Notes: mir-8517 microRNA precursor family: a 108-nucleotide RNA sequence from Plutella xylostella. The source organism's lineage runs through Eukaryota, Hexapoda, Insecta, Yponomeutoidea and Plutella. The base pairs follow the family's consensus structure, which was predicted with RNAalifold.
RNA sequence: UUACAGGACUUUUUAGCUAUUUAACUGUUUUGUCCCUUUCGGACAAGGAAGAAAUUGUUCUUUGACAAAGAGGGAGAAAAUAGUUUAAUAGCUAAAACGUCCUGUAAC
Numbered sequence: 001u002u003a004c005a006g007g008a009c010u011u012u013u014u015a016g017c018u019a020u021u022u023a024a025c026u027g028u029u030u031u032g033u034c035c036c037u038u039u040c041g042g043a044c045a046a047g048g049a050a051g052a053a054a055u056u057g058u059u060c061u062u063u064g065a066c067a068a069a070g071a072g073g074g075a076g077a078a079a080a081u082a083g084u085u086u087a088a089u090a091g092c093u094a095a096a097a098c099g100u101c102c103u104g105u106a107a108c
Base pairs, nucleotide, nucleotide: 001107002106003105004104005103006102011097012096013095014094015093016092017091018090019089020088021087023085024084025083026082027081028080029069030068031067032066033065034064049059050058052056